The record is an 85-nucleotide sequence from Vibrio ishigakensis, which matches "c-di-GMP-I riboswitch aptamer" in Rfam.

RNA sequence: UUCGGGAAUGGCCAAACCUGUCGUGAGAUAGGGACGGAAAGCUGCGGGUCUCUGGCAAGGAGCUAGAGAUAGCCGGGUUGCAAAU
Number, nucleotide and partner (000 for none) at each position: 001u000002u000003c000004g000005g000006g000007a000008a000009u000010g000011g000012c037013c036014a000015a000016a000017c032018c031019u030020g029021u028022c027023g000024u000025g000026a000027g022028a021029u020030a019031g018032g017033g000034a000035c000036g013037g012038a000039a000040a079041g078042c077043u076044g000045c075046g074047g073048g070049u069050c068051u067052c066053u065054g064055g063056c062057a000058a000059g000060g000061a000062g056063c055064u054065a053066g052067a051068g050069a049070u048071a000072g000073c047074c046075g045076g043077g042078u041079u040080g000081c000082a000083a000084a000085u000